[Rfam]
RNA sequence: UUGUCUUGGCCAUACCUUUCUUGCUCCCCUAUACUCAGUUUUAACAGGGUAGUCUAGCAGUACACCUGGAAAUACUCCUUCCAGUUUAGGAGGGCCAUACUAAGUAGGACUGGCUGUUAAAAGCACAAGAAAAUAAU
Numbered sequence: 001u002u003g004u005c006u007u008g009g010c011c012a013u014a015c016c017u018u019u020c021u022u023g024c025u026c027c028c029c030u031a032u033a034c035u036c037a038g039u040u041u042u043a044a045c046a047g048g049g050u051a052g053u054c055u056a057g058c059a060g061u062a063c064a065c066c067u068g069g070a071a072a073u074a075c076u077c078c079u080u081c082c083a084g085u086u087u088a089g090g091a092g093g094g095c096c097a098u099a100c101u102a103a104g105u106a107g108g109a110c111u112g113g114c115u116g117u118u119a120a121a122a123g124c125a126c127a128a129g130a131a132a133a134u135a136a137u
Stems, first nucleotide, its partner, number of pairs: 002064003006060003010057001023053003027049004032044001079131003084124004090118002093115004098109001100107002
RNA: Small Cajal body specific RNA 11
Organism: Sciurus carolinensis